The record is an 82-nucleotide sequence from Verminephrobacter eiseniae, which matches "SucA RNA motif" in Rfam. It is one of the family's seed sequences. The family's RNA type in Rfam is cis-regulatory element. For this family Rfam cites "Identification of 22 candidate structured RNAs in bacteria using the CMfinder comparative genomics pipeline" (Weinberg et al., Nucleic Acids Res, 2007).

RNA sequence: UCGCAUCCGCCAACCGGUCCAGCCGUGUCGCGGAAGGUUUUCCAACCAACUCAUGCUUUCCGCAGGAAAGCGCAGGUCAGCG
Numbered sequence: 001u002c003g004c005a006u007c008c009g010c011c012a013a014c015c016g017g018u019c020c021a022g023c024c025g026u027g028u029c030g031c032g033g034a035a036g037g038u039u040u041u042c043c044a045a046c047c048a049a050c051u052c053a054u055g056c057u058u059u060c061c062g063c064a065g066g067a068a069a070g071c072g073c074a075g076g077u078c079a080g081c082g
Stems, first nucleotide, its partner, number of pairs: 002082003006034005015025004036047004049077003055071007
Dot-bracket structure: .(((.(((((....((((...))))....))))).((((....)))).(((...(((((((...)))))))...)))..)))